The family of this 147-nucleotide RNA from Caulobacter radicis is "Caulobacter sRNA CC3664". NCBI's taxonomy places the organism under Bacteria, Pseudomonadota, Caulobacterales, Caulobacteraceae, Caulobacter. For this family Rfam cites "Small non-coding RNAs in Caulobacter crescentus" (Landt et al., Mol Microbiol, 2008). It is annotated as a small RNA.
RNA sequence: GUCGGCUGAUCGGAGACCCCACGGUCCAGGAUCCUGAACAGCCCCCCCAGCCCCCCUUGAUCGCGGGCCGGUCGGCCGACAGACCAAAUCAAGAGAACCCCUCUCUUAAACUGCAGAGCCCGCGUGGAGCCCCCUCCCACGCGGGCU
Numbered sequence: 001g002u003c004g005g006c007u008g009a010u011c012g013g014a015g016a017c018c019c020c021a022c023g024g025u026c027c028a029g030g031a032u033c034c035u036g037a038a039c040a041g042c043c044c045c046c047c048c049a050g051c052c053c054c055c056c057u058u059g060a061u062c063g064c065g066g067g068c069c070g071g072u073c074g075g076c077c078g079a080c081a082g083a084c085c086a087a088a089u090c091a092a093g094a095g096a097a098c099c100c101c102u103c104u105c106u107u108a109a110a111c112u113g114c115a116g117a118g119c120c121c122g123c124g125u126g127g128a129g130c131c132c133c134c135u136c137c138c139a140c141g142c143g144g145g146c147u
Base pairs, nucleotide, nucleotide: 001080002079003078004077005076006075007074008073009072010071011070012069013068018067019066020065022063023062024061025060026059029055030054034050035049036048117147118146119145120144121143122142123141124140125139126138127137
About this RNA:
The base pairs follow the family's consensus structure.